[Rfam]
RNA sequence: AGAUUGAUAGCUGUAACGAAGUGCUGCGCGCACGGGCUUCCAACUAUC
Number, nucleotide and partner (000 for none) at each position: 001a000002g000003a000004u000005u000006g000007a000008u000009a038010g037011c036012u035013g000014u000015a000016a000017c000018g000019a000020a000021g033022u032023g031024c030025u000026g000027c000028g000029c000030g024031c023032a022033c021034g000035g012036g011037c010038u009039u000040c000041c000042a000043a000044c000045u000046a000047u000048c000

Shown here is a 48-nucleotide sequence, a member of the family "ssnA RNA". By type it is a cis-regulatory element. It is one of the family's seed sequences.